[Rfam]
Nucleotides: 099
Stems, first nucleotide, its partner, number of pairs: 056067004
Number, partner (000 for none) and nucleotide at each position: 001000u002000u003000a004000a005000c006000a007000g008000g009000a010000u011000g012000a013000a014000u015000u016000u017000u018000u019000a020000u021000a022000u023000c024000u025000a026000a027000g028000u029000a030000u031000g032000u033000u034000u035000u036000u037000c038000u039000g040000g041000c042000a043000u044000c045000u046000c047000u048000a049000a050000u051000g052000u053000u054000a055000g056067a057066g058065c059064u060000u061000u062000u063000c064059a065058g066057c067056u068000c069000a070000a071000u072000g073000a074000a075000u076000a077000c078000a079000a080000c081000a082000a083000u084000u085000g086000a087000c088000u089000a090000u091000a092000a093000u094000c095000u096000g097000a098000u099000a
Notes: A member of the RNA family "Small nucleolar RNA snR48" from Spathaspora passalidarum, 99 nucleotides long. On this family, see Lowe and Eddy, Science 1999: "A computational screen for methylation guide snoRNAs in yeast". Gene Ontology terms of the family: nucleolus and RNA processing. By type it is a C/D-box small nucleolar RNA.